[Rfam]
RNA sequence: GCACCUCUGUACAACCCUGUUGAUGGUUUCUGUUUGACGUGGGUUAUUUUGGUGCCAGAGAGACUCAAUGUAAAUCCAGAUGGUCCUCCCUCUGAUGGAGCCUGUCUCUACAACUUUGAUACAUAA
Dot-bracket structure: (((((.......(((((.......................))))).....))))).........((((.(.......((((((.(...(.......)..).))))))......).)))).......

About this RNA: The record is a 126-nucleotide RNA sequence from Nothobranchius furzeri, which matches "Small nucleolar RNA SNORA55" in Rfam. ACA55 is a member of the H/ACA class of snoRNA that guide the sites of modification of uridines to pseudouridines. NCBI's taxonomy places the organism under Eukaryota, Euteleostomi, Actinopteri, Percomorphaceae, Nothobranchius.